The family of this 365-nucleotide RNA sequence from Olsenella uli is "transfer-messenger RNA".
Rfam links the family to the GO term RNA catabolic process.
The organism belongs to Olsenella uli, within Bacteria.
[Rfam]
RNA sequence: GGGGGUGACUGGUUUCGACAGGGUAGGUCUGAGGUGGGCAGCAAGCCGUGGUCUCCUCGCCACGUAAAACUGGGGUGCCGUCAAAUUUAAUUGACAACGAUUCUUACCAGGGCUCUUACGCCCUCGCCGCUUAAUCUAAAAGUGGCCGUCUAACCAGGGGAUUCUCCCGCUCCUGGGGUGACGUCAUCCAAGGGAGAUGCUCCUUGGGACGUAGUUGGUAUGCCCGAGGCCAAGCCUGAACCAGCUGGGACGCAGAACGUGGGUCACGGGAUGCGAUGCGUCCGAGAUCCAACCGGUGACUGAGCUUGGAGACACCUGCCAGGGAUUUGCUUUGGACCGGAGUUCGACUCUCCGCACCUCCACCA
Numbered sequence: 001g002g003g004g005g006u007g008a009c010u011g012g013u014u015u016c017g018a019c020a021g022g023g024u025a026g027g028u029c030u031g032a033g034g035u036g037g038g039c040a041g042c043a044a045g046c047c048g049u050g051g052u053c054u055c056c057u058c059g060c061c062a063c064g065u066a067a068a069a070c071u072g073g074g075g076u077g078c079c080g081u082c083a084a085a086u087u088u089a090a091u092u093g094a095c096a097a098c099g100a101u102u103c104u105u106a107c108c109a110g111g112g113c114u115c116u117u118a119c120g121c122c123c124u125c126g127c128c129g130c131u132u133a134a135u136c137u138a139a140a141a142g143u144g145g146c147c148g149u150c151u152a153a154c155c156a157g158g159g160g161a162u163u164c165u166c167c168c169g170c171u172c173c174u175g176g177g178g179u180g181a182c183g184u185c186a187u188c189c190a191a192g193g194g195a196g197a198u199g200c201u202c203c204u205u206g207g208g209a210c211g212u213a214g215u216u217g218g219u220a221u222g223c224c225c226g227a228g229g230c231c232a233a234g235c236c237u238g239a240a241c242c243a244g245c246u247g248g249g250a251c252g253c254a255g256a257a258c259g260u261g262g263g264u265c266a267c268g269g270g271a272u273g274c275g276a277u278g279c280g281u282c283c284g285a286g287a288u289c290c291a292a293c294c295g296g297u298g299a300c301u302g303a304g305c306u307u308g309g310a311g312a313c314a315c316c317u318g319c320c321a322g323g324g325a326u327u328u329g330c331u332u333u334g335g336a337c338c339g340g341a342g343u344u345c346g347a348c349u350c351u352c353c354g355c356a357c358c359u360c361c362a363c364c365a
Base pairs, nucleotide, nucleotide: 001361002360003359004358005357006356007355019334020333021332022331023330024329025328026327027326028325029324030323033320034319035318036317037316038315042308043307044306045305046304047064048063049062050061051060053077055075056074057073058072126146127145128144129143130142131141132140147183148182149181150180154176155175156174157173158172159171160170163197164196165195166194167193168192202229203228204227205226206225207224208223213246214245215244216243217242218241248283249282250281251280252279253278254277258273259272260271263300264299265298266297269294270293338354339353340352341351342350

From the family's description: Bacterial tmRNA, also known as 10Sa RNA or SsrA, is named for its dual tRNA and mRNA-like properties. Its role is to liberate the mRNA from a stalled ribosome. To accomplish this part of the tmRNA is used as a reading frame that ends in a translation stop signal. The family's RNA type in Rfam is non-coding RNA gene.